The family of this 87-nucleotide sequence from Lysinibacillus sp. BF-4 is "BsrC". A search with the family's covariance model found it, with a score of 55 bits. The 301 nucleotide sequence from Kouji Nakamura has been trimmed to a highly conserved ~85 nucleotide long core to form this family. Rfam 15.1 lists 572 matches to the family in 553 species. Pairs were carried over by alignment from the consensus structure, which was predicted with CMfinder.
[Rfam]
RNA sequence: UCGACUUAAGCAACGCAAACCCUACCUGCUUUUGCGUCCUUGCAGCCCCAAAGCUACGCCAGUGUGAAUAAGUGUCGUCAAAGACAU
Numbered sequence: 001u002c003g004a005c006u007u008a009a010g011c012a013a014c015g016c017a018a019a020c021c022c023u024a025c026c027u028g029c030u031u032u033u034g035c036g037u038c039c040u041u042g043c044a045g046c047c048c049c050a051a052a053g054c055u056a057c058g059c060c061a062g063u064g065u066g067a068a069u070a071a072g073u074g075u076c077g078u079c080a081a082a083g084a085c086a087u
Stems, first nucleotide, its partner, number of pairs: 035066002039062002041058002044055003